[Rfam]
RNA sequence: UUAUAUUAGGUCUGUGGUUGAAAGUCGAAGCCAGCCGCAGGCGAAGCGAUCCACGUAAGUCAGACAAAGUCUGAUGAGCAUGGUGCGGUUUAGGGGUAAGACCUGCCGCCUUAGGGCGAGAGGGGCUAUAGUGAGAGGAAUACACCUUAAGCAAAACCUCCAGCAGGCGAGUGUGGGGGCAAAAACCAGGUCAGCUAAUAUAA
Numbered sequence: 001u002u003a004u005a006u007u008a009g010g011u012c013u014g015u016g017g018u019u020g021a022a023a024g025u026c027g028a029a030g031c032c033a034g035c036c037g038c039a040g041g042c043g044a045a046g047c048g049a050u051c052c053a054c055g056u057a058a059g060u061c062a063g064a065c066a067a068a069g070u071c072u073g074a075u076g077a078g079c080a081u082g083g084u085g086c087g088g089u090u091u092a093g094g095g096g097u098a099a100g101a102c103c104u105g106c107c108g109c110c111u112u113a114g115g116g117c118g119a120g121a122g123g124g125g126c127u128a129u130a131g132u133g134a135g136a137g138g139a140a141u142a143c144a145c146c147u148u149a150a151g152c153a154a155a156a157c158c159u160c161c162a163g164c165a166g167g168c169g170a171g172u173g174u175g176g177g178g179g180c181a182a183a184a185a186c187c188a189g190g191u192c193a194g195c196u197a198a199u200a201u202a203a
Base pairs, nucleotide, nucleotide: 001203002202003201004200005199006198007197008196009195012194013193014192015188016187017186018185019184028174030172031041033090034089035088036087037086038085039084050083051082058075060073063070081181102167103166104165105164106163107118108117109116110115122160123159124158125157131152132151137146138145
RNA: raiA RNA